[Rfam]
RNA sequence: UCCACCGCGAGGUGGAAUCUGAAGGAAGCCGCAGGCAAACUCCCGGCCCGACGAACAGAAAUCACAUACGAGGCAGCUUCAUUCGGGCGAGAAGGCGUAGAUCUUCAAAGCCCAAUAGUCAUCCGGGAGGGUGAGGCUGUAUAUGUGGCGGGUAUAUGGGAGGAAGGUCACGCGCA
Numbered sequence: 001u002c003c004a005c006c007g008c009g010a011g012g013u014g015g016a017a018u019c020u021g022a023a024g025g026a027a028g029c030c031g032c033a034g035g036c037a038a039a040c041u042c043c044c045g046g047c048c049c050g051a052c053g054a055a056c057a058g059a060a061a062u063c064a065c066a067u068a069c070g071a072g073g074c075a076g077c078u079u080c081a082u083u084c085g086g087g088c089g090a091g092a093a094g095g096c097g098u099a100g101a102u103c104u105u106c107a108a109a110g111c112c113c114a115a116u117a118g119u120c121a122u123c124c125g126g127g128a129g130g131g132u133g134a135g136g137c138u139g140u141a142u143a144u145g146u147g148g149c150g151g152g153u154a155u156a157u158g159g160g161a162g163g164a165a166g167g168u169c170a171c172g173c174g175c176a
Stems, first nucleotide, its partner, number of pairs: 001016006030174003035168002040162006046153005062148006073140003077136001079134006085113004091106004